[Rfam]
RNA sequence: CUGUGAGAGGAAUGAUGUAUUAUUAUCGGGCACUUAAAAUGCUGGCCUUUCUAGAUUCUGCCUCAGAGAUGGACAUCAGGG
Numbered sequence: 001c002u003g004u005g006a007g008a009g010g011a012a013u014g015a016u017g018u019a020u021u022a023u024u025a026u027c028g029g030g031c032a033c034u035u036a037a038a039a040u041g042c043u044g045g046c047c048u049u050u051c052u053a054g055a056u057u058c059u060g061c062c063u064c065a066g067a068g069a070u071g072g073a074c075a076u077c078a079g080g081g
Stems, first nucleotide, its partner, number of pairs: 001081002004078003
The family of this 81-nucleotide sequence from Coffea canephora is "Small nucleolar RNA J33". By type it is a C/D-box small nucleolar RNA. The literature on the family includes a 2003 paper in Nucleic Acids Res by Chen et al., "The high diversity of snoRNAs in plants: identification and comparative study of 120 snoRNA genes from Oryza sativa". Gene Ontology terms of the family: nucleolus and RNA processing. The organism belongs to Coffea, within Eukaryota. The base pairs follow the family's consensus structure. It scores 85 bits against the family's covariance model.